[Rfam]
Overview: Rfam assigns this 55-nucleotide RNA to the family "chrB-b RNA". The family's RNA type in Rfam is cis-regulatory element.
RNA sequence: UCGGGCCUUCCCGCAGCCGCCCGGUUUUCGCAAAGACAUUUUGUCCAAGCGCUGC
Numbered sequence: 001u002c003g004g005g006c007c008u009u010c011c012c013g014c015a016g017c018c019g020c021c022c023g024g025u026u027u028u029c030g031c032a033a034a035g036a037c038a039u040u041u042u043g044u045c046c047a048a049g050c051g052c053u054g055c
Stems, first nucleotide, its partner, number of pairs: 001024006013055005035045004